[Rfam]
RNA: tRNA
RNA sequence: GCGGCCAUAGAUUAGCUGGGAGAUCGUCAGACUGAAGUUCAACUUCAAUCCUACGGAUUAGAUACCUAUCUGAAGGUCGUGUGUUCGAGUCACACUGGCCGCA
Number, nucleotide and partner (000 for none) at each position: 001g102002c101003g100004g099005c098006c097007a096008u000009a000010g025011a024012u023013u022014a000015g000016c000017u000018g000019g000020g000021a000022g013023a012024u011025c010026g000027u073028c072029a071030g070031a069032c000033u000034g000035a000036a000037g000038u000039u000040c000041a000042a000043c000044u000045u000046c000047a000048a000049u000050c000051c000052u000053a000054c000055g000056g000057a000058u000059u000060a000061g000062a000063u000064a000065c000066c000067u000068a000069u031070c030071u029072g028073a027074a000075g000076g000077u000078c000079g095080u094081g093082u092083g091084u000085u000086c000087g000088a000089g000090u000091c083092a082093c081094a080095c079096u007097g006098g005099c004100c003101g002102c001103a000